The family of this 144-nucleotide sequence from Sus scrofa is "Small nucleolar RNA SNORA12". Rfam classes the family as an H/ACA-box small nucleolar RNA. A search with the family's covariance model found it, with a score of 120 bits. Taxonomically the source falls in Sus (Eukaryota, Opisthokonta, Mammalia, Theria). On this family, see Gu et al., Nucleic Acids Res 2005: "A novel experimental approach for systematic identification of box H/ACA snoRNAs from eukaryotes". U108 belongs to the H/ACA family of snoRNAs. The sequence is predicted to guide the pseudouridylation of the U372 residue in the 28S rRNA subunit. However it has not been reported as a pseudouridylation site. Rfam links the family to the GO terms nucleolus and RNA processing.

[Rfam]
RNA sequence: AGUUGAGGUGGUUUUCUUUUUGGCACAUUUGUUGAGUUUUUCCAAUGGUCCUGACUCUGCCACAGAUACAGGAGAUGGCAAAGGCUUGAUAACAAAGAGAUCUCUUUCUAGCCUUUCCCGAAUCAAAGAUUGGUUCCCACAGGU
Numbered sequence: 001a002g003u004u005g006a007g008g009u010g011g012u013u014u015u016c017u018u019u020u021u022g023g024c025a026c027a028u029u030u031g032u033u034g035a036g037u038u039u040u041u042c043c044a045a046u047g048g049u050c051c052u053g054a055c056u057c058u059g060c061c062a063c064a065g066a067u068a069c070a071g072g073a074g075a076u077g078g079c080a081a082a083g084g085c086u087u088g089a090u091a092a093c094a095a096a097g098a099g100a101u102c103u104c105u106u107u108c109u110a111g112c113c114u115u116u117c118c119c120g121a122a123u124c125a126a127a128g129a130u131u132g133g134u135u136c137c138c139a140c141a142g143g144u
Stems, first nucleotide, its partner, number of pairs: 005063001007061005022051002026047004031042001071137004076132001077086003103129005